A member of the RNA family "Small nucleolar RNA SNORA12" from Cercocebus atys, 148 nucleotides long. Its family is annotated with RNA processing and nucleolus in the Gene Ontology. Rfam describes the family as follows. U108 belongs to the H/ACA family of snoRNAs. The sequence is predicted to guide the pseudouridylation of the U372 residue in the 28S rRNA subunit. However it has not been reported as a pseudouridylation site. For this family Rfam cites "A novel experimental approach for systematic identification of box H/ACA snoRNAs from eukaryotes" (Gu et al., Nucleic Acids Res, 2005). The match comes from Rfam's covariance-model search (144 bits). Pairs were carried over by alignment from the consensus structure, which was predicted with RNAalifold.

[Rfam]
RNA sequence: GGCUGUGGUGGUUUUCCUUCUGGUACAUUUGUUAAGUUUUUGAAUGAGCCUAACUCCACCACAUGUAUUACAUAGCAGCUGGCAAAGGCUUGAUGACAAAGAGAUCUCUCACAAGUCUUUCUCACAUCAGAGGCUGGCUCUCACAUAU
Numbered sequence: 001g002g003c004u005g006u007g008g009u010g011g012u013u014u015u016c017c018u019u020c021u022g023g024u025a026c027a028u029u030u031g032u033u034a035a036g037u038u039u040u041u042g043a044a045u046g047a048g049c050c051u052a053a054c055u056c057c058a059c060c061a062c063a064u065g066u067a068u069u070a071c072a073u074a075g076c077a078g079c080u081g082g083c084a085a086a087g088g089c090u091u092g093a094u095g096a097c098a099a100a101g102a103g104a105u106c107u108c109u110c111a112c113a114a115g116u117c118u119u120u121c122u123c124a125c126a127u128c129a130g131a132g133g134c135u136g137g138c139u140c141u142c143a144c145a146u147a148u
Base pairs, nucleotide, nucleotide: 005062006061007060008059009058010057011056022050023049024048026046027045028044029043030042031041075141077139078138079137080136081090082089083088107133108132109131110130